[Rfam]
RNA: mir-3473 microRNA precursor family
RNA sequence: ACUGCGGAGCCAUCUUUCCAGCCCCCAAUAAAUUUUUUUUUUUUAAAGAAACUGCCUCAGGGCUGGAGAGAUGGCUCAGCAGU
Number, nucleotide and partner (000 for none) at each position: 001a000002c082003u081004g080005c079006g000007g077008a076009g075010c074011c073012a072013u071014c070015u069016u068017u067018c066019c065020a064021g063022c062023c061024c060025c000026c000027a000028a000029u000030a000031a000032a000033u000034u000035u000036u000037u000038u000039u000040u000041u000042u000043u000044u000045a000046a000047a000048g000049a000050a000051a000052c000053u000054g000055c000056c000057u000058c000059a000060g024061g023062g022063c021064u020065g019066g018067a017068g016069a015070g014071a013072u012073g011074g010075c009076u008077c007078a000079g005080c004081a003082g002083u000